[Rfam]
Record summary: The record is a 132-nucleotide sequence from Desulfosporosinus metallidurans, which matches "Molybdenum/Tungsten riboswitch aptamer (Moco RNA motif)" in Rfam. The base pairs follow the family's consensus structure, which is taken from published work.
RNA sequence: AUUUCGUCAUCGCUCCAAAGCUGGAUCACCUAAAGCAGAAGUUAUGGUGACCAGACAAGUGCCUUUAAGGCACUCGGGUAUUAUGGGAAACCGUAAUAUCUCCUGCUGGAAAGGAGUCUGUCGACAGGUGGA
Numbered sequence: 001a002u003u004u005c006g007u008c009a010u011c012g013c014u015c016c017a018a019a020g021c022u023g024g025a026u027c028a029c030c031u032a033a034a035g036c037a038g039a040a041g042u043u044a045u046g047g048u049g050a051c052c053a054g055a056c057a058a059g060u061g062c063c064u065u066u067a068a069g070g071c072a073c074u075c076g077g078g079u080a081u082u083a084u085g086g087g088a089a090a091c092c093g094u095a096a097u098a099u100c101u102c103c104u105g106c107u108g109g110a111a112a113g114g115a116g117u118c119u120g121u122c123g124a125c126a127g128g129u130g131g132a
Stems, first nucleotide, its partner, number of pairs: 003126001012117005022054001024052001026050005034043003059073005076101011102109002